[Rfam]
RNA: Plastid-psbA-1 3UTR RNA
RNA sequence: UCGAAGCUCCAACAAAUGGAUAAGACUUGGUCUUAGUGUAUAGGAGUUUUUCAAAAUAGAAUCACAUAAGGAGCAAUAAACUCUUUCUUGUUCUAUCAAGAGAGUUUAUUGCUCCUUAAU
Numbered sequence: 001u002c003g004a005a006g007c008u009c010c011a012a013c014a015a016a017u018g019g020a021u022a023a024g025a026c027u028u029g030g031u032c033u034u035a036g037u038g039u040a041u042a043g044g045a046g047u048u049u050u051u052c053a054a055a056a057u058a059g060a061a062u063c064a065c066a067u068a069a070g071g072a073g074c075a076a077u078a079a080a081c082u083c084u085u086u087c088u089u090g091u092u093c094u095a096u097c098a099a100g101a102g103a104g105u106u107u108a109u110u111g112c113u114c115c116u117u118a119a120u
Stems, first nucleotide, its partner, number of pairs: 008020003057118001068117012081104001085102005